Rfam assigns this 72-nucleotide sequence from Mizuhopecten yessoensis to the family "tRNA".
Rfam links the family to the GO term triplet codon-amino acid adaptor activity.

RNA sequence: UCCGAUGUGGUCUAGUGGUUAGGAUUUCUGGUUUUCACCCAGACGGCCCGGGUUCAAUUCCCGGCAUCGGAA
Number, nucleotide and partner (000 for none) at each position: 001u071002c070003c069004g068005a067006u066007g065008u000009g000010g025011u024012c023013u022014a000015g000016u000017g000018g000019u000020u000021a000022g013023g012024a011025u010026u000027u043028c042029u041030g040031g039032u000033u000034u000035u000036c000037a000038c000039c031040c030041a029042g028043a027044c000045g000046g000047c000048c064049c063050g062051g061052g060053u000054u000055c000056a000057a000058u000059u000060c052061c051062c050063g049064g048065c007066a006067u005068c004069g003070g002071a001072a000
The family's RNA type in Rfam is transfer RNA. It scores 67 bits against the family's covariance model. The organism belongs to Mizuhopecten, within Eukaryota.